[Rfam]
A member of the RNA family "FMN riboswitch aptamer (RFN element)" from Gellertiella hungarica, 146 nucleotides long.
RNA sequence: UAUCGUUCUCAGGGCGGGGUGAAAUUCCCCACCGGCGGUAUCGGGCUUGUCCCGGAGCCCGCGAGCGCCUGCCCGAACGGGCAGGGUCAGCAGAUCCGGUGACAUGCCGGAGCCGACGGUUACAGUCCGGAUGAAAGAGAACCGGC
Dot-bracket structure: ..(.((((((......(((.......))).[[((((((..................[[))))..((.......................))...(((((.......)))))]])).(((.....]]))).......)))))).)..
Numbered sequence: 001u002a003u004c005g006u007u008c009u010c011a012g013g014g015c016g017g018g019g020u021g022a023a024a025u026u027c028c029c030c031a032c033c034g035g036c037g038g039u040a041u042c043g044g045g046c047u048u049g050u051c052c053c054g055g056a057g058c059c060c061g062c063g064a065g066c067g068c069c070u071g072c073c074c075g076a077a078c079g080g081g082c083a084g085g086g087u088c089a090g091c092a093g094a095u096c097c098g099g100u101g102a103c104a105u106g107c108c109g110g111a112g113c114c115g116a117c118g119g120u121u122a123c124a125g126u127c128c129g130g131a132u133g134a135a136a137g138a139g140a141a142c143c144g145g146c
Stems, first nucleotide, its partner, number of pairs: 003144001005142006017029003031126002033115002035062004057113002065091002095111005117129003

Rfam's curators write: The RFN element is a highly conserved domain that is found frequently in the 5'-untranslated regions of prokaryotic mRNAs that encode for flavin mononucleotide (FMN) biosynthesis and transport proteins. Taxonomically the source falls in Gellertiella (Bacteria, Pseudomonadati, Hyphomicrobiales, Rhizobiaceae).